[Rfam]
RNA sequence: AAGCGAGGCUGAAGGCGGUUCCCCCCCACCCCUUCAGCACUUCCGGUGAGUCACCUUGAGAAGACCCGCGGCCCGGCACCUCUUUGGGGUGUCGGGCCGCCUUCUUUU
Numbered sequence: 001a002a003g004c005g006a007g008g009c010u011g012a013a014g015g016c017g018g019u020u021c022c023c024c025c026c027c028a029c030c031c032c033u034u035c036a037g038c039a040c041u042u043c044c045g046g047u048g049a050g051u052c053a054c055c056u057u058g059a060g061a062a063g064a065c066c067c068g069c070g071g072c073c074c075g076g077c078a079c080c081u082c083u084u085u086g087g088g089g090u091g092u093c094g095g096g097c098c099g100c101c102u103u104c105u106u107u108u
Base pairs, nucleotide, nucleotide: 005042006041007040008038009037010036011035012034013033014032015031017030018029019028045055046054047053048052059105060104061103062102063101068100069099070098071097072096073095074094075093076092077091078090079089080088081087
Notes
Shown here is a 108-nucleotide RNA from Myxococcus xanthus, a member of the family "Pxr regulatory sRNA". Lineage of the source: Bacteria > Myxococcia > Myxococcales > Cystobacterineae > Myxococcus xanthus. From the family's description: Downregulates genes responsible for the formation of fruiting bodies in Myxococcus xanthus, inhibiting the transition from growth to development in the presence of abundant nutrients. For this family Rfam cites "Adaptive evolution of an sRNA that controls Myxococcus development" (Yu et al., Science, 2010). Pairs were carried over by alignment from the consensus structure, which is taken from published work.